RNA sequence: AGAGGCCCUCCAUGGCCAAGGUGGAACGCUUGCCUCGUUGCCACGGCGACGAAGCAAGCAUUCUACCAGGCCAUUCACGCUGCCUGC
Numbered sequence: 001a002g003a004g005g006c007c008c009u010c011c012a013u014g015g016c017c018a019a020g021g022u023g024g025a026a027c028g029c030u031u032g033c034c035u036c037g038u039u040g041c042c043a044c045g046g047c048g049a050c051g052a053a054g055c056a057a058g059c060a061u062u063c064u065a066c067c068a069g070g071c072c073a074u075u076c077a078c079g080c081u082g083c084c085u086g087c
Stems, first nucleotide, its partner, number of pairs: 004084003012074006020067007028059006037050005
Description:
The record is an 87-nucleotide sequence from Cnephaeus nilssonii, which matches "mir-9195 microRNA precursor family" in Rfam. The family has 3 seed sequences and 438 matches in Rfam 15.1. The match comes from Rfam's covariance-model search (97 bits). The base pairs follow the family's consensus structure, which was predicted with RNAalifold.